The family of this 100-nucleotide RNA sequence from Clostridium tyrobutyricum is "Purine riboswitch aptamer". The family's consensus secondary structure is taken from published work. It scores 63 bits against the family's covariance model.

RNA sequence: UAAUAUUCAUUGAUUAUCAUCUAUAUAAUCUUGAUAGUAUGCUCAAGAGUUUCUACCAGAGAGCGAAAAAUCUCUGACUAUAGGUGAAUCCGUUAACAUG
Numbered sequence: 001u002a003a004u005a006u007u008c009a010u011u012g013a014u015u016a017u018c019a020u021c022u023a024u025a026u027a028a029u030c031u032u033g034a035u036a037g038u039a040u041g042c043u044c045a046a047g048a049g050u051u052u053c054u055a056c057c058a059g060a061g062a063g064c065g066a067a068a069a070a071u072c073u074c075u076g077a078c079u080a081u082a083g084g085u086g087a088a089u090c091c092g093u094u095a096a097c098a099u100g
Stems, first nucleotide, its partner, number of pairs: 018086008029048006057076006